[Rfam]
RNA sequence: GCUGUUUUAGGGUAGGAGGAGAGAGGUGUUACUUUAGAAGCUGCCACCUCGCCCAUCCUCUCCUCUGCAGGAGC
Number, nucleotide and partner (000 for none) at each position: 001g074002c073003u072004g000005u070006u069007u000008u067009a066010g065011g063012g062013u000014a059015g058016g057017a056018g054019g053020a000021g052022a000023g050024a049025g048026g047027u046028g045029u000030u043031a042032c000033u040034u039035u000036a000037g000038a000039a034040g033041c000042u031043g030044c000045c028046a027047c026048c025049u024050c023051g000052c021053c019054c018055a000056u017057c016058c015059u014060c000061u000062c012063c011064u000065c010066u009067g008068c000069a006070g005071g000072a003073g002074c001